[Rfam]
RNA sequence: UCGUCAGGCUCAGUCCCCUCCCGAUAAACCUCUAAAUAGGGUGUUUCCCCGGGGGUGGCCUCCG
Number, nucleotide and partner (000 for none) at each position: 001u000002c000003g000004u064005c000006a000007g061008g060009c000010u058011c057012a000013g056014u055015c054016c053017c052018c051019u000020c000021c000022c000023g047024a046025u000026a045027a044028a000029c000030c041031u040032c039033u038034a000035a000036a000037u000038a033039g032040g031041g030042u000043g000044u027045u026046u024047c023048c000049c000050c000051g018052g017053g016054g015055g014056u013057g011058g010059c000060c008061u007062c000063c000064g004
A member of the RNA family "mir-484 microRNA precursor family" from Cricetulus griseus, 64 nucleotides long.
The family's consensus secondary structure was predicted with RNAalifold.
Rfam's curators put it in the seed alignment.
The source organism's lineage runs through Eukaryota, Eumetazoa, Glires, Muroidea and Cricetulus.
For this family Rfam cites "MicroRNA transcriptome in the newborn mouse ovaries determined by massive parallel sequencing" (Ahn et al., Mol Hum Reprod, 2010).